[Rfam]
RNA sequence: CCAUCACCACCAUCAUAAAGCAUAGCCUUUCAGGUUUGUGCUGGAAGGUUAUUUGUUCCUUCCAGCGGCGCAGAUAAAGAAUUCUCGACCCCCGGAAGGAAACUUCCGGGGGUUUUU
Number, nucleotide and partner (000 for none) at each position: 001c000002c000003a000004u000005c000006a000007c000008c040009a039010c038011c000012a035013u034014c033015a000016u000017a000018a000019a000020g031021c000022a000023u000024a000025g000026c000027c000028u000029u000030u000031c020032a000033g014034g013035u012036u000037u000038g010039u009040g008041c065042u064043g063044g062045a061046a060047g059048g058049u000050u000051a000052u000053u000054u000055g000056u000057u000058c048059c047060u046061u045062c044063c043064a042065g041066c000067g000068g000069c000070g000071c000072a000073g000074a000075u000076a000077a000078a000079g000080a000081a000082u000083u000084c000085u000086c000087g114088a113089c112090c111091c110092c109093c108094g107095g106096a105097a104098g103099g000100a000101a000102a000103c098104u097105u096106c095107c094108g093109g092110g091111g090112g089113u088114u087115u000116u000117u000
Rfam assigns this 117-nucleotide RNA sequence from Alteromonas confluentis to the family "Histidine operon leader". About the family: At least 6 amino acid operons are known to be regulated by attenuation. In each a leader sequence of 150-200 bp is found upstream of the first gene in the operon. This leader sequence can assume two different secondary structures known as the terminator and the anti-terminator structure. The organism belongs to Alteromonas, within Bacteria. The match comes from Rfam's covariance-model search (73 bits). The family's RNA type in Rfam is cis-regulatory leader. On this family, see Kolter and Yanofsky, Annu Rev Genet 1982: "Attenuation in amino acid biosynthetic operons".